[Rfam]
Source information: Shown here is a 424-nucleotide part of an RNA from Daucus carota, a member of the family "Archaeal large subunit ribosomal RNA". A search with the family's covariance model found it, with a score of 1067 bits. Pairs were carried over by alignment from the consensus structure, which is taken from published work.

RNA sequence: GGUGUAAGCAAAUAUUCAAUGAGAACUUGAAGGCCGAAAGGGGAAAGGUUCCAUGUGAACGGCACUUGCACAUGGGUUAGUCGAUCUAAAGCAGAGGGGAAGCCUGUCAGAAGCGCGUUUUGCGUGAACUUCGAAAGGGAAUCGGGUUAAAUUCCUGAACCGGGAUGUGGCGGCUGACGGCAACGUUAGGGAGUCCGGAGACGUCGGCGGGGGCCUCGGGAAGAGUUAUUCUUUUCUGUUAACAGCUUGCCCACCCUGGAAACGGCUUAGCCGGAGGUAGGGUCCAACGGCUGGUAGAGCACCGCACGUCGCGCGGUGUCCGGUGCGCCCCUGGCGGCCCUUGAAAAUCCGGAGGACCGAGUGCCUUCCACGUCCGGUCGUACUUAACCGCAUCAGGUCUCCAAGUGAACAGCCUCUGGUCGGA
Dot-bracket structure: ..............(((((.......)))))((((....((((..((...((((((...((.....)).))))))......(((.((...(.((..................................)).)....))...(((((.......)))))..((.((((((...........................(((...((((.(((((..(.(.((.((((........)))).)...((((......((((((....(((.....)))....))))))......))))...........(.......).......).).)...))))).)))).........)))..................)))))))).)))..))...((......)).))))(.(.......).)..))))...